[Rfam]
RNA: c-di-AMP riboswitch aptamer (ydaO/yuaA leader)
Organism: Tepidiforma thermophila
RNA sequence: GAUUGGCUGGAGCCGAACCCCGCCAGAGGCGGGGGCGGGGGAACCAACUCCUUGGGGUGUAUUGCGCGAGCGGGCGCAUAGGCGACUUCCGACGCCGAACCCGUCAGCUAACCCCGCAGGCGUUCGGAGGGCAGCG
Number, nucleotide and partner (000 for none) at each position: 001g000002a000003u000004u000005g000006g000007c000008u000009g000010g000011a000012g121013c120014c119015g000016a000017a000018c034019c033020c032021c031022g030023c000024c000025a000026g000027a000028g000029g000030c022031g021032g020033g019034g018035g117036c116037g115038g114039g113040g112041g000042a000043a000044c000045c054046a053047a000048c000049u000050c000051c000052u000053u046054g045055g102056g101057g100058u000059g000060u000061a000062u000063u078064g077065c076066g075067c000068g000069a000070g000071c000072g000073g000074g000075c066076g065077c064078a063079u000080a000081g096082g095083c094084g093085a000086c000087u000088u000089c000090c000091g000092a000093c084094g083095c082096c081097g000098a000099a000100c057101c056102c055103g000104u000105c000106a000107g000108c000109u000110a000111a000112c040113c039114c038115c037116g036117c035118a000119g014120g013121c012122g000123u000124u000125c000126g000127g000128a000129g000130g000131g000132c000133a000134g000135c000136g000